This 577-nucleotide part of an RNA from Methanococcus aeolicus belongs to the Rfam family "Archaeal large subunit ribosomal RNA". Pairs were carried over by alignment from the consensus structure, which is taken from published work. It is one of the family's seed sequences.
RNA sequence: CUUCCAGUGGGAAGCGAAGACCCCGUGGAGCUUUACUGCAGCCUGUCGUUGGGGCAUGAUUGUGGGUGUACAGUGUAGGUGGGAGCCAUCGAAACCUUCUCGCUAGGGAAGGUGGAGGCGUCCAUGGGACACCACCCUCCUAUGAUCAUGUCCCUUACCCAAGUAUGGGGACACCGGUAGGUGGGCAGUUUGGCUGGGGCGGUACCCUCCUAAAAAUGCAUCAGGAGGGCCCAAAGGUUGGCUCAAGCGGGUCAGGACUCCGCUGUUGAGUGUAAGGGCAAAAGCCAGCCUGACUUAGUUGUCCACAAUACGCAACUAAGAGACGAAAGUCGGGCCUAACGAACCCCUGUGCCUCACCGAUGGAGGCCAGGGAUGACAGAAAAGCUACCCCGGGGAUAACAGAGUUGUCGCGGGCAAGAGCCCAUAUCGACCCCGCGGCUUGCUACCUCGAUGUCGGUUUUUCCCAUCCUGGAUCUGCAGCAGGAUCCAAGGGUGGGGCUGUUCGCCCAUUAAAGGGGAUCAUGAGCUGGGUUUAGACCGUCGUGAGACAGGUUGGUUGCUAUCUGCUGGAAGUGUU
Numbered sequence: 001c002u003u004c005c006a007g008u009g010g011g012a013a014g015c016g017a018a019g020a021c022c023c024c025g026u027g028g029a030g031c032u033u034u035a036c037u038g039c040a041g042c043c044u045g046u047c048g049u050u051g052g053g054g055c056a057u058g059a060u061u062g063u064g065g066g067u068g069u070a071c072a073g074u075g076u077a078g079g080u081g082g083g084a085g086c087c088a089u090c091g092a093a094a095c096c097u098u099c100u101c102g103c104u105a106g107g108g109a110a111g112g113u114g115g116a117g118g119c120g121u122c123c124a125u126g127g128g129a130c131a132c133c134a135c136c137c138u139c140c141u142a143u144g145a146u147c148a149u150g151u152c153c154c155u156u157a158c159c160c161a162a163g164u165a166u167g168g169g170g171a172c173a174c175c176g177g178u179a180g181g182u183g184g185g186c187a188g189u190u191u192g193g194c195u196g197g198g199g200c201g202g203u204a205c206c207c208u209c210c211u212a213a214a215a216a217u218g219c220a221u222c223a224g225g226a227g228g229g230c231c232c233a234a235a236g237g238u239u240g241g242c243u244c245a246a247g248c249g250g251g252u253c254a255g256g257a258c259u260c261c262g263c264u265g266u267u268g269a270g271u272g273u274a275a276g277g278g279c280a281a282a283a284g285c286c287a288g289c290c291u292g293a294c295u296u297a298g299u300u301g302u303c304c305a306c307a308a309u310a311c312g313c314a315a316c317u318a319a320g321a322g323a324c325g326a327a328a329g330u331c332g333g334g335c336c337u338a339a340c341g342a343a344c345c346c347c348u349g350u351g352c353c354u355c356a357c358c359g360a361u362g363g364a365g366g367c368c369a370g371g372g373a374u375g376a377c378a379g380a381a382a383a384g385c386u387a388c389c390c391c392g393g394g395g396a397u398a399a400c401a402g403a404g405u406u407g408u409c410g411c412g413g414g415c416a417a418g419a420g421c422c423c424a425u426a427u428c429g430a431c432c433c434c435g436c437g438g439c440u441u442g443c444u445a446c447c448u449c450g451a452u453g454u455c456g457g458u459u460u461u462u463c464c465c466a467u468c469c470u471g472g473a474u475c476u477g478c479a480g481c482a483g484g485a486u487c488c489a490a491g492g493g494u495g496g497g498g499c500u501g502u503u504c505g506c507c508c509a510u511u512a513a514a515g516g517g518g519a520u521c522a523u524g525a526g527c528u529g530g531g532u533u534u535a536g537a538c539c540g541u542c543g544u545g546a547g548a549c550a551g552g553u554u555g556g557u558u559g560c561u562a563u564c565u566g567c568u569g570g571a572a573g574u575g576u577u
Stems, first nucleotide, its partner, number of pairs: 001573008010565003014560002022394004027390002029386005035189004042181007051154016068137001078136005085119003097110005158169004192205001193203003206228006231334002237289006243269002246264006270279002294320009322331001324329001345372005351367005403444003407441001408438007418428002455530001456528004460522001461519005468493002472487005496508004536554004540549003

Gene Ontology terms of the family: ribosome and structural constituent of ribosome.